[Rfam]
RNA sequence: UUCCUUUUACCACAACAACUCGUGAAUGGCUUGACACCAGCAUCACCUUCGGGUCGAUAAUGGAGUCGCUGUUCAGUUUGACUUCAAGGAGCCAUCAAAUUCCCAUGAUGUCAAUUUUCUAGUCAACGGGUUUGAGAUCGAUUAACGCGCCCGCAAGUCUCGAAGUUUUGAGCCCCUCCGGGGAGCUCGAUGGAGAGAUGGGCGCCUUAAGUCACUAUAUUCCAAAUCUUUUCGCUGAUGCCGUCGGCUUAUGAUGCUAAAGACUCACCAUGGUGAAUACAGUU
Dot-bracket structure: ................(((((((((((((..((((.(((..((((((....))).)))..))).))))))))))....(((((....((.(.(.............).).))........)))))))))))).............(...((((...........(((..(((((((....))).))))))).......)))).).......(((((((........(((((..((....(((...))).......)).)))))......)))))))........
Numbered sequence: 001u002u003c004c005u006u007u008u009a010c011c012a013c014a015a016c017a018a019c020u021c022g023u024g025a026a027u028g029g030c031u032u033g034a035c036a037c038c039a040g041c042a043u044c045a046c047c048u049u050c051g052g053g054u055c056g057a058u059a060a061u062g063g064a065g066u067c068g069c070u071g072u073u074c075a076g077u078u079u080g081a082c083u084u085c086a087a088g089g090a091g092c093c094a095u096c097a098a099a100u101u102c103c104c105a106u107g108a109u110g111u112c113a114a115u116u117u118u119c120u121a122g123u124c125a126a127c128g129g130g131u132u133u134g135a136g137a138u139c140g141a142u143u144a145a146c147g148c149g150c151c152c153g154c155a156a157g158u159c160u161c162g163a164a165g166u167u168u169u170g171a172g173c174c175c176c177u178c179c180g181g182g183g184a185g186c187u188c189g190a191u192g193g194a195g196a197g198a199u200g201g202g203c204g205c206c207u208u209a210a211g212u213c214a215c216u217a218u219a220u221u222c223c224a225a226a227u228c229u230u231u232u233c234g235c236u237g238a239u240g241c242c243g244u245c246g247g248c249u250u251a252u253g254a255u256g257c258u259a260a261a262g263a264c265u266c267a268c269c270a271u272g273g274u275g276a277a278u279a280c281a282g283u284u
Stems, first nucleotide, its partner, number of pairs: 017132007024074006032068004037063003042058003045054003079125005088112002091109001093107001146204001150202004165191003170188004174183003212276007227263005234257002240248003
A. fumigatus sRNA Afu_309: a 284-nucleotide sequence from Pseudogymnoascus sp. VKM F-3557. By type it is a small RNA. Rfam 15.1 lists 663 matches to the family in 646 species. The organism belongs to Pseudogymnoascus, within Eukaryota. The family's consensus secondary structure was predicted with WAR.